[Rfam]
RNA sequence: GCAAUUGCUCCGGGGUGCUGCCGGCCAUUGUGGCCGAGCAGCUGAGAUGGCCAACAACCCAAACCCGUGAACUUGAAUCGGUUCGUACCGACGUAAGAAGAGCUGACUGCCUCCGG
Numbered sequence: 001g002c003a004a005u006u007g008c009u010c011c012g013g014g015g016u017g018c019u020g021c022c023g024g025c026c027a028u029u030g031u032g033g034c035c036g037a038g039c040a041g042c043u044g045a046g047a048u049g050g051c052c053a054a055c056a057a058c059c060c061a062a063a064c065c066c067g068u069g070a071a072c073u074u075g076a077a078u079c080g081g082u083u084c085g086u087a088c089c090g091a092c093g094u095a096a097g098a099a100g101a102g103c104u105g106a107c108u109g110c111c112u113c114c115g116g
Stems, first nucleotide, its partner, number of pairs: 007103004011067004016061001017042005049060002072097004078091004
The family of this 116-nucleotide sequence from Polaromonas sp. A23 is "TPP riboswitch aptamer (THI element)". Rfam describes the family as follows. Vitamin B(1) in its active form thiamin pyrophosphate (TPP) is an essential coenzyme that is synthesised by coupling of pyrimidine and thiazole moieties in bacteria.